Rfam assigns this 135-nucleotide sequence from Danaus plexippus to the family "U4atac minor spliceosomal RNA". From the family's description: U4atac is an essential component of the minor U12-type spliceosome complex which is required for removal of the rarer class of eukaryotic introns (AT-AC, U12-type). It is annotated as a spliceosomal small nuclear RNA. It scores 81 bits against the family's covariance model. Gene Ontology terms of the family: spliceosomal tri-snRNP complex assembly, mRNA 5'-splice site recognition and pre-mRNA 5'-splice site binding.

RNA sequence: UACUUCCUUGUCUUGGGGAGCAUAGUGCGCAGUGAUCGUAAAGUGAGAGCACUGAUGCUGACACCCACAUGUUAUCUUGUAUAACUAACCCGCGCCCGGCUGCCGUCAGGGAGUCCGAGCGCAAUUUUUGUAAAG
Numbered sequence: 001u002a003c004u005u006c007c008u009u010g011u012c013u014u015g016g017g018g019a020g021c022a023u024a025g026u027g028c029g030c031a032g033u034g035a036u037c038g039u040a041a042a043g044u045g046a047g048a049g050c051a052c053u054g055a056u057g058c059u060g061a062c063a064c065c066c067a068c069a070u071g072u073u074a075u076c077u078u079g080u081a082u083a084a085c086u087a088a089c090c091c092g093c094g095c096c097c098g099g100c101u102g103c104c105g106u107c108a109g110g111g112a113g114u115c116c117g118a119g120c121g122c123a124a125u126u127u128u129u130g131u132a133a134a135g
Base pairs, nucleotide, nucleotide: 005019006018007017008016009015020058021057022056023055024053025052026051027050028049030047037043092122093121094120095119097117099114100113101112103110104109